[Rfam]
RNA: Glycine riboswitch aptamer
RNA sequence: GAACUCUGGAGAGUCCGCAAACUGCGGCACCGAAGGAGAAACCCGUAGCCUUGGGCACGGGAAUCUCUCAGGUUGUAAGGACAGAGGCCGGAAA
Numbered sequence: 001g002a003a004c005u006c007u008g009g010a011g012a013g014u015c016c017g018c019a020a021a022c023u024g025c026g027g028c029a030c031c032g033a034a035g036g037a038g039a040a041a042c043c044c045g046u047a048g049c050c051u052u053g054g055g056c057a058c059g060g061g062a063a064u065c066u067c068u069c070a071g072g073u074u075g076u077a078a079g080g081a082c083a084g085a086g087g088c089c090g091g092a093a094a
Stems, first nucleotide, its partner, number of pairs: 001089001004086005015027004029073003032069002036067003042060002